[Rfam]
RNA sequence: AAGUGACUGAUCCGAAGAGCCGGUGUAAGGGGUGUCAGAGCCGGCCGCGCAGGAUGUAUGAGACGCAACCCCAGUGUCCUCCGGGUCUGCCCUUUUAU
Dot-bracket structure: ..(.(((............((((....(......).....))))..(((..............))).........))))...(((....)))......
Rfam assigns this 98-nucleotide RNA from Mycobacterium noviomagense to the family "Mycobacterium sRNA ncrMT1302". It scores 53 bits against the family's covariance model. On this family, see Pelly et al., Gene 2012: "A screen for non-coding RNA in Mycobacterium tuberculosis reveals a cAMP-responsive RNA that is expressed during infection". It is annotated as a small RNA.